[Rfam]
RNA sequence: CUCUUAUCCAGAGAGGUGGAGGGACAGGCCCGAUGAAUCCUCGGCAACCAUCUGCAUGAAGCAGAAAGGUGCCAAUUCCUGCAGGACGCUGAGCGGUUCUGACAGAUGAGAG
Numbered sequence: 001c002u003c004u005u006a007u008c009c010a011g012a013g014a015g016g017u018g019g020a021g022g023g024a025c026a027g028g029c030c031c032g033a034u035g036a037a038u039c040c041u042c043g044g045c046a047a048c049c050a051u052c053u054g055c056a057u058g059a060a061g062c063a064g065a066a067a068g069g070u071g072c073c074a075a076u077u078c079c080u081g082c083a084g085g086a087c088g089c090u091g092a093g094c095g096g097u098u099c100u101g102a103c104a105g106a107u108g109a110g111a112g
Base pairs, nucleotide, nucleotide: 001112002111003110004109005108006107007106008105013042014041015040016039021031022030023029025081026080027079028078043073044072045071046070048069049068051065052064053063054062077104082101083100084099085098086097087096
Overview
Shown here is a 112-nucleotide RNA from Thermoactinomyces sp. AS95, a member of the family "SAM riboswitch aptamer (S box leader)". The organism belongs to Thermoactinomyces, within Bacteria. It scores 97 bits against the family's covariance model.